[Rfam]
RNA sequence: GGGGUUGUUUGGUUUUGACAGCGAGAGAUGUGGUAUGUAAGCAUGCAGUGCGUCAGUGAUUUGCACUAUAAUCUCAGUUACUGAACAAUUAUCUGGCAACGAAAAUUAUGCUCUCGCUGCUUAAUCGAAGUACAGUAGAUUAGCUUUAUUUCCGUCACAGUGAUGGAAACGAGACAUCGCUCAAAAGCUCUUGUUCCGAAGCGUUUGGUAUAGCGGUGCAGUAAAAUCGGGAAUAGUUUUGGUCUUGUUCCGCGGCCGGAAUGAAAUUUUAGGAACUAAGGCAUAAGUGGGUGGCUCUGGUCUUGCUUAUGCACGAAAACCGAAGGCAGAGAUAAGCAUGUAGAAAGCAUAUGGCUUCCUUGUUUGGACGAGGGUUCGACUCCCUCCAGCUCCACAA
Numbered sequence: 001g002g003g004g005u006u007g008u009u010u011g012g013u014u015u016u017g018a019c020a021g022c023g024a025g026a027g028a029u030g031u032g033g034u035a036u037g038u039a040a041g042c043a044u045g046c047a048g049u050g051c052g053u054c055a056g057u058g059a060u061u062u063g064c065a066c067u068a069u070a071a072u073c074u075c076a077g078u079u080a081c082u083g084a085a086c087a088a089u090u091a092u093c094u095g096g097c098a099a100c101g102a103a104a105a106u107u108a109u110g111c112u113c114u115c116g117c118u119g120c121u122u123a124a125u126c127g128a129a130g131u132a133c134a135g136u137a138g139a140u141u142a143g144c145u146u147u148a149u150u151u152c153c154g155u156c157a158c159a160g161u162g163a164u165g166g167a168a169a170c171g172a173g174a175c176a177u178c179g180c181u182c183a184a185a186a187g188c189u190c191u192u193g194u195u196c197c198g199a200a201g202c203g204u205u206u207g208g209u210a211u212a213g214c215g216g217u218g219c220a221g222u223a224a225a226a227u228c229g230g231g232a233a234u235a236g237u238u239u240u241g242g243u244c245u246u247g248u249u250c251c252g253c254g255g256c257c258g259g260a261a262u263g264a265a266a267u268u269u270u271a272g273g274a275a276c277u278a279a280g281g282c283a284u285a286a287g288u289g290g291g292u293g294g295c296u297c298u299g300g301u302c303u304u305g306c307u308u309a310u311g312c313a314c315g316a317a318a319a320c321c322g323a324a325g326g327c328a329g330a331g332a333u334a335a336g337c338a339u340g341u342a343g344a345a346a347g348c349a350u351a352u353g354g355c356u357u358c359c360u361u362g363u364u365u366g367g368a369c370g371a372g373g374g375u376u377c378g379a380c381u382c383c384c385u386c387c388a389g390c391u392c393c394a395c396a397a
Stems, first nucleotide, its partner, number of pairs: 001393007019366003024361002027358002030355002033352006042340005047067005055082006112174005118168001120166001175218006182207004187202003194231003198227001236262009247276005281312008290302003295331002298326001370386005
Dot-bracket structure: (((((((...........(((..((.((.((.((((((...((((([[[[[...((((((..]]]]].........)))))).............................(((((.(.(.............................................).).)))))((((((.((((.(((....[[[.[.))).)))).....))))))........].]]]....(((((((((..[[[[[..))))))))).........]]]]]....((((((((.(((..[[.[.)))..)))))))).............]...]]....)))))......)))))).)).)).))..)))...(((((.......))))))))))))....
Rfam assigns this 397-nucleotide sequence from Phocaeicola coprophilus to the family "transfer-messenger RNA". The family's RNA type in Rfam is non-coding RNA gene. A search with the family's covariance model found it, with a score of 139 bits. The base pairs follow the family's consensus structure, which is taken from published work. The organism belongs to Phocaeicola coprophilus, within Bacteria. Clan: tRNA clan.